[Rfam]
Nucleotides: 077
Base pairs, nucleotide, nucleotide: 002076003075005073006072007071008070009069010068011067012066013065014064015063016062017061018060019059020058021057022056023055024054
Number, partner (000 for none) and nucleotide at each position: 001000a002076c003075c004000a005073c006072u007071a008070a009069g010068c011067c012066a013065u014064c015063u016062c017061u018060c019059c020058a021057g022056c023055c024054c025000a026000g027000a028000a029000a030000g031000u032000u033000a034000u035000u036000u037000u038000a039000a040000a041000a042000g043000a044000a045000a046000a047000g048000g049000a050000u051000g052000a053000u054024g055023g056022g057021c058020u059019g060018g061017a062016g063015a064014g065013a066012u067011g068010g069009c070008u071007u072006a073005g074000c075003g076002g077000u
Background
A member of the RNA family "mir-3473 microRNA precursor family" from Jaculus jaculus, 77 nucleotides long. Its family is annotated with cellular response to mechanical stimulus, RISC complex and miRNA-mediated post-transcriptional gene silencing in the Gene Ontology. The organism belongs to Jaculus, within Eukaryota. It scores 76 bits against the family's covariance model.